[Rfam]
RNA sequence: CCUAUCGAAAUAGCUCCAAGGCUAGACUGAUUGGAGAUAGCUGGCAAGGUAGAGCACUGAUUGAGUGUUUAGGGUGGGAAACUACUCGGCAUUCUGUAAAACUCCAAACUUGCUAGCAUCGUAGAAGAUCGGAUCGAGGGGCGUGGGGUAAGCCUGUGUCCCGAAAGAGAAACAACUCAGACUUUGGUUAAGGUCCCCAAGUGCCGGAUUAGUUUAAGGGAGUCAUUAGCCCUAGACAGUGGGGAGGUGGGCUUAGAAGCAGCCACCCUUUAACGAGUUCGUAACAGAUCACCCAUCGAGGUUAAUGGCAUCUAAAAUGGAAGGGGUUAAGUCGGCCACCGAUACCAAUGAACAUAUACUUUUGUAUAUGAUUUCGUAGAUAGGCGUCCUGUUGGAUUUGAAGCUGGGGUGUGAAUUCCAGUGGAUCUUGCAGGAAUGUGGAU
Numbered sequence: 001c002c003u004a005u006c007g008a009a010a011u012a013g014c015u016c017c018a019a020g021g022c023u024a025g026a027c028u029g030a031u032u033g034g035a036g037a038u039a040g041c042u043g044g045c046a047a048g049g050u051a052g053a054g055c056a057c058u059g060a061u062u063g064a065g066u067g068u069u070u071a072g073g074g075u076g077g078g079a080a081a082c083u084a085c086u087c088g089g090c091a092u093u094c095u096g097u098a099a100a101a102c103u104c105c106a107a108a109c110u111u112g113c114u115a116g117c118a119u120c121g122u123a124g125a126a127g128a129u130c131g132g133a134u135c136g137a138g139g140g141g142c143g144u145g146g147g148g149u150a151a152g153c154c155u156g157u158g159u160c161c162c163g164a165a166a167g168a169g170a171a172a173c174a175a176c177u178c179a180g181a182c183u184u185u186g187g188u189u190a191a192g193g194u195c196c197c198c199a200a201g202u203g204c205c206g207g208a209u210u211a212g213u214u215u216a217a218g219g220g221a222g223u224c225a226u227u228a229g230c231c232c233u234a235g236a237c238a239g240u241g242g243g244g245a246g247g248u249g250g251g252c253u254u255a256g257a258a259g260c261a262g263c264c265a266c267c268c269u270u271u272a273a274c275g276a277g278u279u280c281g282u283a284a285c286a287g288a289u290c291a292c293c294c295a296u297c298g299a300g301g302u303u304a305a306u307g308g309c310a311u312c313u314a315a316a317a318u319g320g321a322a323g324g325g326g327u328u329a330a331g332u333c334g335g336c337c338a339c340c341g342a343u344a345c346c347a348a349u350g351a352a353c354a355u356a357u358a359c360u361u362u363u364g365u366a367u368a369u370g371a372u373u374u375c376g377u378a379g380a381u382a383g384g385c386g387u388c389c390u391g392u393u394g395g396a397u398u399u400g401a402a403g404c405u406g407g408g409g410u411g412u413g414a415a416u417u418c419c420a421g422u423g424g425a426u427c428u429u430g431c432a433g434g435a436a437u438g439u440g441g442a443u
Stems, first nucleotide, its partner, number of pairs: 001384006011024005026134001027132006036120003040117008052105001053103002060097002063094006072087006138162009167178003182350001184348005192340003201337001203336005218312002222309010239296005245269003250264003275290001279288002351374002353370005385438001387435006394428003403422008
RNA: Archaeal large subunit ribosomal RNA, nucleotides 965 to 1407
Organism: Methanosphaera stadtmanae